[Rfam]
RNA sequence: CAUAAACAAAGACCUCCUAACUUUGUUUAAACCUCCUAAACUUUUUCAUAAUAAUCUCCCAUAAGAGUCGCCCAAUCGGCGGCUUUUUU
Numbered sequence: 001c002a003u004a005a006a007c008a009a010a011g012a013c014c015u016c017c018u019a020a021c022u023u024u025g026u027u028u029a030a031a032c033c034u035c036c037u038a039a040a041c042u043u044u045u046u047c048a049u050a051a052u053a054a055u056c057u058c059c060c061a062u063a064a065g066a067g068u069c070g071c072c073c074a075a076u077c078g079g080c081g082g083c084u085u086u087u088u089u
Base pairs, nucleotide, nucleotide: 003029004028005027006026007025008024009023010022011021064086065085066084067083068082069081070080071079072078
RNA: Cia-dependent small RNA csRNA1